[Rfam]
RNA sequence: ACGCAUGCCCGUAGACCUUGCCUGACGGCGUUCGUGGCCAGGCAGGGGGGACAGUGCAUGCAAGAAUACUCGGAGCCCGCGCCAGCUCCUGCCAACUAACUGGGUGGCUGGACAAGUAGCGUUGCUCCCACAGCU
Number, nucleotide and partner (000 for none) at each position: 001a000002c000003g061004c060005a059006u058007g057008c056009c000010c000011g000012u000013a000014g000015a000016c047017c046018u045019u044020g043021c042022c041023u040024g039025a000026c000027g000028g000029c000030g000031u000032u000033c000034g000035u000036g000037g000038c000039c024040a023041g022042g021043c020044a019045g018046g017047g016048g000049g000050g000051a000052c000053a000054g000055u000056g008057c007058a006059u005060g004061c003062a000063a000064g000065a000066a000067u000068a000069c000070u000071c000072g128073g127074a126075g125076c000077c124078c000079g000080c121081g120082c119083c000084a000085g000086c000087u000088c000089c000090u000091g000092c111093c110094a109095a000096c107097u000098a000099a000100c000101u000102g000103g000104g000105u000106g000107g096108c000109u094110g093111g092112a000113c000114a000115a000116g000117u000118a000119g082120c081121g080122u000123u000124g077125c075126u074127c073128c072129c000130a000131c000132a000133g000134c000135u000

Shown here is a 135-nucleotide sequence from Pteropus alecto, a member of the family "Small nucleolar RNA SNORA58". Gene Ontology terms of the family: nucleolus and RNA processing. The literature on the family includes a 2001 paper in EMBO J by Huttenhofer et al., "RNomics: an experimental approach that identifies 201 candidates for novel, small, non-messenger RNAs in mouse". Lineage of the source: Eukaryota > Sarcopterygii > Eutheria > Pteropodoidea > Pteropus. Pairs were carried over by alignment from the consensus structure, which was predicted with PFOLD. The family's RNA type in Rfam is H/ACA-box small nucleolar RNA. A search with the family's covariance model found it, with a score of 118 bits. ACA52 is a member of the H/ACA class of snoRNA that guide the sites of modification of uridines to pseudouridines.